[Rfam]
RNA sequence: AGCCCCCUGGCAACGGGCACGGAGACACCUGAUUGGUGGUGUUGCUCUGACAUCCAUCAGGGGCAAAGCAGAGGUACAGGCCUUAGUUCAUCCCAGCUCGAUGCCUGUGUCGGUGGCCAGAGCUGCUUCAUGCCCGAGGCACAUAG
Numbered sequence: 001a002g003c004c005c006c007c008u009g010g011c012a013a014c015g016g017g018c019a020c021g022g023a024g025a026c027a028c029c030u031g032a033u034u035g036g037u038g039g040u041g042u043u044g045c046u047c048u049g050a051c052a053u054c055c056a057u058c059a060g061g062g063g064c065a066a067a068g069c070a071g072a073g074g075u076a077c078a079g080g081c082c083u084u085a086g087u088u089c090a091u092c093c094c095a096g097c098u099c100g101a102u103g104c105c106u107g108u109g110u111c112g113g114u115g116g117c118c119a120g121a122g123c124u125g126c127u128u129c130a131u132g133c134c135c136g137a138g139g140c141a142c143a144u145a146g
Stems, first nucleotide, its partner, number of pairs: 002064003006061004015054002020049003024043006086140003100134001102132001106130002111125002114122001
Record summary: Rfam assigns this 146-nucleotide RNA sequence from Cnephaeus nilssonii to the family "Small nucleolar RNA SNORA48". Its Rfam clan is "SNORA48 clan". Rfam links the family to the GO terms nucleolus and RNA processing. The base pairs follow the family's consensus structure, which was predicted with RNAalifold. A reference for the family is Ofengand and Bakin (1997), "Mapping to nucleotide resolution of pseudouridine residues in large subunit ribosomal RNAs from representative eukaryotes, prokaryotes, archaebacteria, mitochondria and chloroplasts", J Mol Biol. Rfam's curators write: The snoRNA ACA 48 has been identified to guide pseudouridylation of the residue U3797 in the 28S rRNA subunit. Rfam classes the family as an H/ACA-box small nucleolar RNA. NCBI's taxonomy places the organism under Eukaryota, Deuterostomia, Gnathostomata, Eutheria, Cnephaeus.